[Rfam]
RNA sequence: ACCGUCCUGAUGUGUUCGUCGGGUCACCCAUCGUUUUGACCGAACAGUCGAUGAUCCGGGAGCCCGGGGUUUCCAAGCGGCGUGCAUGCCUCUUCGUUGCAGGGGGAAGCGCAAACCUUGGAACAGGGCACCCACCUAUGUGGGAGCGGGUUCAAAACGAAGGCAUCGACGGCACGAUUGGGACUGGU
Dot-bracket structure: .(.((((((((((((.(((............((((.(((((................(((.((((.(....((((((......((...(((((........)))))..))......)))))).).)))).)))...............)).))).)))).........))))))).)))))))).)..

Shown here is a 188-nucleotide RNA from Geobacillus thermodenitrificans, a member of the family "6S / SsrS RNA". NCBI's taxonomy places the organism under Bacteria, Bacillota, Bacilli, Caryophanales, Geobacillus thermodenitrificans. E. coli 6S RNA was the first non coding RNA to be sequenced, but its function was unknown until recently. By type it is a non-coding RNA gene.